[Rfam]
RNA sequence: UUUAAUCUUUGGGGAUCGGUGAAAUUCCAUACCGGCGGUAAAAGCAAGAAGGACCGGUCGUGUUCUUUUUGCUCAAAGCCCGCGAACGCAAUAAAUGCGCUGAACAGGGGAAGAUCCUGUGCCGACGGUCACAGUCCGGAUGGGAAAAGAUAAAG
Numbered sequence: 001u002u003u004a005a006u007c008u009u010u011g012g013g014g015a016u017c018g019g020u021g022a023a024a025u026u027c028c029a030u031a032c033c034g035g036c037g038g039u040a041a042a043a044g045c046a047a048g049a050a051g052g053a054c055c056g057g058u059c060g061u062g063u064u065c066u067u068u069u070u071g072c073u074c075a076a077a078g079c080c081c082g083c084g085a086a087c088g089c090a091a092u093a094a095a096u097g098c099g100c101u102g103a104a105c106a107g108g109g110g111a112a113g114a115u116c117c118u119g120u121g122c123c124g125a126c127g128g129u130c131a132c133a134g135u136c137c138g139g140a141u142g143g144g145a146a147a148a149g150a151u152a153a154a155g
Stems, first nucleotide, its partner, number of pairs: 003153001005151006018028002031135002033124002035083004078122002087099002104120005126138003
A member of the RNA family "FMN riboswitch aptamer (RFN element)" from Anaerotruncus sp. CAG:390, 155 nucleotides long. The RFN element is a highly conserved domain that is found frequently in the 5'-untranslated regions of prokaryotic mRNAs that encode for flavin mononucleotide (FMN) biosynthesis and transport proteins. This element is a metabolite-dependent riboswitch that directly binds FMN in the absence of proteins. Lineage of the source: Bacteria > Bacillota > Eubacteriales > Oscillospiraceae > Anaerotruncus.